Notes: The record is an 86-nucleotide RNA from Chiloscyllium punctatum, which matches "mir-15 microRNA precursor family" in Rfam. This family represents the related mir-15a and mir-15b sequences. In humans miR-15a and miR-16 are clustered within 0.5 kb at 13q14. For this family Rfam cites "Identification of novel genes coding for small expressed RNAs" (Lagos-Quintana et al., Science, 2001). Its Rfam clan is "mir-15 clan". Rfam links the family to the GO terms miRNA-mediated post-transcriptional gene silencing and RISC complex.

RNA sequence: UCGACUCUACUUUAGCAGCACAUAAAUAUUGGCAGGUUCCAAUACUAUUUUGCCAAUAUUGCGUGUGCUGCUCCAAUAUGGCUCGA
Numbered sequence: 001u002c003g004a005c006u007c008u009a010c011u012u013u014a015g016c017a018g019c020a021c022a023u024a025a026a027u028a029u030u031g032g033c034a035g036g037u038u039c040c041a042a043u044a045c046u047a048u049u050u051u052g053c054c055a056a057u058a059u060u061g062c063g064u065g066u067g068c069u070g071c072u073c074c075a076a077u078a079u080g081g082c083u084c085g086a
Base pairs, nucleotide, nucleotide: 001086002085003084005081014072015071016070017069018068019067020066021065022064025060026059027058028057029056030055031054032053033052034051035050